Rfam assigns this 37-nucleotide sequence to the family "DUF805b RNA". Its Rfam clan is "DUF805 clan". It is annotated as a cis-regulatory element.
RNA sequence: GCAGGGGAAUCCGAAAACCUGAGCAAAAGAGUAGGAU
Dot-bracket structure: .((((....[[[.....))))............]]].